[Rfam]
RNA sequence: UUACGUGUAGGGUGGAGAUGCACAGCCGUCGGACUGCGUAGCACAGGCUUUUACAGACGCUUCAUUUCGUCCGCUGUCGUCGGCUGAUUCCUCCUCCUGAACCAAGCGCUUUUGUUGCCACACCAGCGACCAGGAAACGCUGUCGCGUCGUCGGCCCUUCUGGCCGGCGAUCGCUAGACCCAGAGGCGGCCCGACCGCCCCUGACGCGCGCCCGACACCAACCGUGAGAGUCGUGUGUGCCGAACGUCGUCUCCGGCAGCCCCGGAAACCAU
Numbered sequence: 001u002u003a004c005g006u007g008u009a010g011g012g013u014g015g016a017g018a019u020g021c022a023c024a025g026c027c028g029u030c031g032g033a034c035u036g037c038g039u040a041g042c043a044c045a046g047g048c049u050u051u052u053a054c055a056g057a058c059g060c061u062u063c064a065u066u067u068c069g070u071c072c073g074c075u076g077u078c079g080u081c082g083g084c085u086g087a088u089u090c091c092u093c094c095u096c097c098u099g100a101a102c103c104a105a106g107c108g109c110u111u112u113u114g115u116u117g118c119c120a121c122a123c124c125a126g127c128g129a130c131c132a133g134g135a136a137a138c139g140c141u142g143u144c145g146c147g148u149c150g151u152c153g154g155c156c157c158u159u160c161u162g163g164c165c166g167g168c169g170a171u172c173g174c175u176a177g178a179c180c181c182a183g184a185g186g187c188g189g190c191c192c193g194a195c196c197g198c199c200c201c202u203g204a205c206g207c208g209c210g211c212c213c214g215a216c217a218c219c220a221a222c223c224g225u226g227a228g229a230g231u232c233g234u235g236u237g238u239g240c241c242g243a244a245c246g247u248c249g250u251c252u253c254c255g256g257c258a259g260c261c262c263c264g265g266a267a268a269c270c271a272u
Base pairs, nucleotide, nucleotide: 014094015093016092017091023086024085025084026083027082028081030079031078032077036074037073038072040049041048042047056071057070058069059068095135096134097133098132099131138208139207140206142179143178144177145174146173147172152166153165154164155163156162183201185199186198187197188196189195215238216237217236218235219233221231222230249269250268252266253265254264255263
A member of the RNA family "rne-II RNA" from Pseudomonas mangiferae, 272 nucleotides long. By type it is a cis-regulatory element.